[Rfam]
RNA: PAGEV RNA
RNA sequence: CGGGGCUUGGAAUCAAGAUGCUGUGGGCCCCGCCAGCGUCAAGCGGGCGAUCACGGGGAUCUCCACACGCCCGCCGGUACAGCCGCUGACUGCUUAAAGUAGGCCGUUGAGGGAAGCUCGCAUUGCUCUCAUCGCUCCGAAUUUCAUGUAGCAGUCGCGCCGCAUGCCGUGGAGGGGUGAGCUGUGUUGGCAGCUCAGAAGAUGCGGGACGCCG
Numbered sequence: 001c002g003g004g005g006c007u008u009g010g011a012a013u014c015a016a017g018a019u020g021c022u023g024u025g026g027g028c029c030c031c032g033c034c035a036g037c038g039u040c041a042a043g044c045g046g047g048c049g050a051u052c053a054c055g056g057g058g059a060u061c062u063c064c065a066c067a068c069g070c071c072c073g074c075c076g077g078u079a080c081a082g083c084c085g086c087u088g089a090c091u092g093c094u095u096a097a098a099g100u101a102g103g104c105c106g107u108u109g110a111g112g113g114a115a116g117c118u119c120g121c122a123u124u125g126c127u128c129u130c131a132u133c134g135c136u137c138c139g140a141a142u143u144u145c146a147u148g149u150a151g152c153a154g155u156c157g158c159g160c161c162g163c164a165u166g167c168c169g170u171g172g173a174g175g176g177g178u179g180a181g182c183u184g185u186g187u188u189g190g191c192a193g194c195u196c197a198g199a200a201g202a203u204g205c206g207g208g209a210c211g212c213c214g
Stems, first nucleotide, its partner, number of pairs: 001032007043074006062173005084159003088156007160207006178197006